[Rfam]
RNA sequence: GCUGCUCCAUGACGGGACGGACUGAAACGUCUCCUGGAUGCCGGUCUCUCUCUGAUGUUCUUGCAGC
Number, nucleotide and partner (000 for none) at each position: 001g067002c066003u065004g064005c063006u000007c000008c000009a000010u000011g000012a000013c000014g052015g051016g050017a049018c000019g047020g046021a045022c044023u043024g000025a000026a000027a000028c000029g039030u038031c037032u000033c000034c000035u000036g000037g031038a030039u029040g000041c000042c000043g023044g022045u021046c020047u019048c000049u017050c016051u015052c014053u000054g000055a000056u000057g000058u000059u000060c000061u000062u000063g005064c004065a003066g002067c001
RNA: Selenocysteine insertion sequence 1
Organism: Rousettus aegyptiacus